[Rfam]
RNA sequence: AAACGACGACGCGACUGGCGCAGGUGGACCACCACCGGGGAGCGUCUUUGGGAUUCAACGGCCGCCCGCCUGGGUCAAGGAU
Numbered sequence: 001a002a003a004c005g006a007c008g009a010c011g012c013g014a015c016u017g018g019c020g021c022a023g024g025u026g027g028a029c030c031a032c033c034a035c036c037g038g039g040g041a042g043c044g045u046c047u048u049u050g051g052g053a054u055u056c057a058a059c060g061g062c063c064g065c066c067c068g069c070c071u072g073g074g075u076c077a078a079g080g081a082u
Stems, first nucleotide, its partner, number of pairs: 004050003008046005015039002017070004024035004060076004